[Rfam]
RNA sequence: AGCCCCGCGAGGGUCUGUCCGGAGGAAGCCUGAGCGCAAAGGUGCGAGCCGACGAACAGAAAUCGCAUAGAAGGCUCAGUCCCCGGGCGAGUCAGCACAAGGUGACGAAGCCCGCCAGGUGCAGGGGAUAGGGUAAAUGCGGCGGUUGUGCACUGAAAGUUCAUGUC
Numbered sequence: 001a002g003c004c005c006c007g008c009g010a011g012g013g014u015c016u017g018u019c020c021g022g023a024g025g026a027a028g029c030c031u032g033a034g035c036g037c038a039a040a041g042g043u044g045c046g047a048g049c050c051g052a053c054g055a056a057c058a059g060a061a062a063u064c065g066c067a068u069a070g071a072a073g074g075c076u077c078a079g080u081c082c083c084c085g086g087g088c089g090a091g092u093c094a095g096c097a098c099a100a101g102g103u104g105a106c107g108a109a110g111c112c113c114g115c116c117a118g119g120u121g122c123a124g125g126g127g128a129u130a131g132g133g134u135a136a137a138u139g140c141g142g143c144g145g146u147u148g149u150g151c152a153c154u155g156a157a158a159g160u161u162c163a164u165g166u167c
Stems, first nucleotide, its partner, number of pairs: 001016002004013003028167001030165001036160002041154006047147005063142006074134003079129006085113004091106004